[Rfam]
RNA sequence: GGUCAGUGAUGAGAUGUAAAAGGUCCGAAGCCUUCGUCUCCGUCCAGUCCUUCUGUUCCUCCCAGCAGCCUCUCUUCAUCUUUCUCCGGCUUGCUCUAGUCGUGCAUCGCUGGUUCGGUGUGGCCGCUGAUAUUAUGGAUGCCUCUGCUGUAUAUUUAAAGUCUUCUAGAGAGUAAGACGACUUGAAAACAGCCGUGUCAAACAGUAACCUCACACACAGGAGGGCCGGACUGAAGGAGAACGUCUGACAGGCUCAUGAUCUCAAGUUUUCAAGCUGAGACC
Numbered sequence: 001g002g003u004c005a006g007u008g009a010u011g012a013g014a015u016g017u018a019a020a021a022g023g024u025c026c027g028a029a030g031c032c033u034u035c036g037u038c039u040c041c042g043u044c045c046a047g048u049c050c051u052u053c054u055g056u057u058c059c060u061c062c063c064a065g066c067a068g069c070c071u072c073u074c075u076u077c078a079u080c081u082u083u084c085u086c087c088g089g090c091u092u093g094c095u096c097u098a099g100u101c102g103u104g105c106a107u108c109g110c111u112g113g114u115u116c117g118g119u120g121u122g123g124c125c126g127c128u129g130a131u132a133u134u135a136u137g138g139a140u141g142c143c144u145c146u147g148c149u150g151u152a153u154a155u156u157u158a159a160a161g162u163c164u165u166c167u168a169g170a171g172a173g174u175a176a177g178a179c180g181a182c183u184u185g186a187a188a189a190c191a192g193c194c195g196u197g198u199c200a201a202a203c204a205g206u207a208a209c210c211u212c213a214c215a216c217a218c219a220g221g222a223g224g225g226c227c228g229g230a231c232u233g234a235a236g237g238a239g240a241a242c243g244u245c246u247g248a249c250a251g252g253c254u255c256a257u258g259a260u261c262u263c264a265a266g267u268u269u270u271c272a273a274g275c276u277g278a279g280a281c282c
Stems, first nucleotide, its partner, number of pairs: 001282004036260003041237001043235001045233004059223004063129004068124002086113005094104001136200001138199005159184005165178003

This 282-nucleotide sequence from Carassius auratus belongs to the Rfam family "Small Cajal body specific RNA 6". A reference for the family is Darzacq et al. (2002), "Cajal body-specific small nuclear RNAs: a novel class of 2'-O-methylation and pseudouridylation guide RNAs", EMBO J. Rfam links the family to the GO terms RNA processing and nucleolus. Pairs were carried over by alignment from the consensus structure, which is taken from published work. It scores 78 bits against the family's covariance model. U88 is small Cajal body specific RNA (scaRNA). scaRNAs are a novel class of small nuclear RNAs which localise to the Cajal bodies. U88 is found associated with both fibrillarin and Gar1p and co-localises with coilin in Cajal bodies.